Rfam assigns this 74-nucleotide sequence from Candidatus Nitrosarchaeum limnium to the family "tRNA". The family's consensus secondary structure is taken from published work. The organism belongs to Candidatus Nitrosarchaeum limnium, within Archaea. Rfam classes the family as a transfer RNA.
RNA sequence: GGGGUCGUAGUCUAGCUUGGUAUGAUACUAGUCUGGGGGACUAGUGGUCGCAGGUUCAAUUCCUGCCGGCCCCA
Numbered sequence: 001g002g003g004g005u006c007g008u009a010g011u012c013u014a015g016c017u018u019g020g021u022a023u024g025a026u027a028c029u030a031g032u033c034u035g036g037g038g039g040a041c042u043a044g045u046g047g048u049c050g051c052a053g054g055u056u057c058a059a060u061u062c063c064u065g066c067c068g069g070c071c072c073c074a
Stems, first nucleotide, its partner, number of pairs: 001073007010026003028044005050066005